[Rfam]
Nucleotides: 125
Base pairs, nucleotide, nucleotide: 011091012090013089014088015031016030017029018028019027020026057084058083059082111119112118
Number, partner (000 for none) and nucleotide at each position: 001000a002000a003000g004000a005000a006000a007000g008000u009000g010000a011091c012090u013089g014088c015031c016030g017029c018028c019027c020026c021000g022000c023000a024000c025000a026020g027019g028018g029017g030016c031015g032000a033000g034000c035000u036000a037000a038000u039000a040000g041000a042000c043000c044000g045000c046000g047000a048000a049000c050000c051000a052000a053000g054000c055000a056000a057084g058083u059082u060000u061000c062000a063000u064000a065000g066000a067000g068000g069000c070000c071000g072000a073000a074000g075000c076000g077000c078000a079000u080000c081000a082059a083058a084057c085000g086000g087000u088014g089013u090012a091011g092000a093000a094000g095000c096000c097000c098000g099000a100000a101000g102000c103000c104000c105000a106000a107000c108000c109000c110000c111119c112118g113000a114000a115000c116000c117000c118112c119111g120000a121000g122000c123000g124000c125000c